A member of the RNA family "FMN riboswitch aptamer (RFN element)" from Caldisericum exile, 156 nucleotides long. Pairs were carried over by alignment from the consensus structure, which is taken from published work.

RNA sequence: AAGAGCCUCCAGGGCAAGGUGAGUUACCUAAAAUAGGUAACAAUUCCUGAUCGGUGGUGAUAGGGUAUUCCCCUUAAGCCCACGAGCAACCCAAAAGGUUGUUGAUUGGGUGAAAAUCCCAAGCCGACAGUAAAGUCUGGAUGGAAGGAGGUUUGA
Dot-bracket structure: ..((((((((......(((..........................))).[[((((((....................[[))))..(((...........)))...(((((.......)))))]])).(((....]]))).......))))))))..
Numbered sequence: 001a002a003g004a005g006c007c008u009c010c011a012g013g014g015c016a017a018g019g020u021g022a023g024u025u026a027c028c029u030a031a032a033a034u035a036g037g038u039a040a041c042a043a044u045u046c047c048u049g050a051u052c053g054g055u056g057g058u059g060a061u062a063g064g065g066u067a068u069u070c071c072c073c074u075u076a077a078g079c080c081c082a083c084g085a086g087c088a089a090c091c092c093a094a095a096a097g098g099u100u101g102u103u104g105a106u107u108g109g110g111u112g113a114a115a116a117u118c119c120c121a122a123g124c125c126g127a128c129a130g131u132a133a134a135g136u137c138u139g140g141a142u143g144g145a146a147g148g149a150g151g152u153u154u155g156a
Stems, first nucleotide, its partner, number of pairs: 003154008017048003050136002052126002054083004078124002086102003106122005128139003